[Rfam]
RNA sequence: GCGGAUGUGGCGGAAUUGGCAGACGCGCUGGACUUAGGAUCCAGUGCCGCAAGGCGUAUGGGUUCGACCCCCUUCAUCCGCA
Numbered sequence: 001g002c003g004g005a006u007g008u009g010g011c012g013g014a015a016u017u018g019g020c021a022g023a024c025g026c027g028c029u030g031g032a033c034u035u036a037g038g039a040u041c042c043a044g045u046g047c048c049g050c051a052a053g054g055c056g057u058a059u060g061g062g063u064u065c066g067a068c069c070c071c072c073u074u075c076a077u078c079c080g081c082a
Stems, first nucleotide, its partner, number of pairs: 001081007010026003028044005058074001060072003